This 77-nucleotide RNA from Parnassius apollo belongs to the Rfam family "Mammalian CPEB3 ribozyme". The organism belongs to Parnassius, within Eukaryota. The family's consensus secondary structure is taken from published work. Rfam links the family to the GO term RNA nuclease activity.

[Rfam]
RNA sequence: AUUGCUUUUUGCACGGUCGUUGUAGAAGCGUGUUCGUCGCGACCCCUGCCAGCCCUUUUCAGGGCUGCAAUUCUACA
Numbered sequence: 001a002u003u004g005c006u007u008u009u010u011g012c013a014c015g016g017u018c019g020u021u022g023u024a025g026a027a028g029c030g031u032g033u034u035c036g037u038c039g040c041g042a043c044c045c046c047u048g049c050c051a052g053c054c055c056u057u058u059u060c061a062g063g064g065c066u067g068c069a070a071u072u073c074u075a076c077a
Stems, first nucleotide, its partner, number of pairs: 015044004021077007028040003050067007